[Rfam]
Nucleotides: 100
Base pairs, nucleotide, nucleotide: 031054032053033052034051035050036049037048038047039046082093083092084091085090
Number, partner (000 for none) and nucleotide at each position: 001000c002000c003000u004000u005000c006000g007000a008000c009000a010000g011000g012000c013000c014000c015000a016000u017000a018000c019000a020000g021000g022000a023000u024000u025000c026000u027000g028000a029000u030000u031054a032053a033052a034051a035050c036049c037048c038047c039046g040000a041000u042000u043000u044000u045000u046039c047038g048037g049036g050035g051034u052033u053032u054031u055000u056000u057000a058000u059000u060000a061000u062000c063000a064000g065000a066000a067000a068000a069000g070000c071000g072000u073000u074000g075000u076000c077000a078000u079000a080000c081000u082093g083092g084091g085090c086000g087000u088000u089000a090085g091084c092083c093082c094000u095000u096000u097000u098000u099000u100000u
Rfam assigns this 100-nucleotide RNA sequence from bacteria symbiont BFo2 of Frankliniella occidentalis to the family "Gammaprotebacteria rimP leader". On this family, see Naville and Gautheret, Genome Biol 2010: "Premature terminator analysis sheds light on a hidden world of bacterial transcriptional attenuation". The family's consensus secondary structure is taken from published work.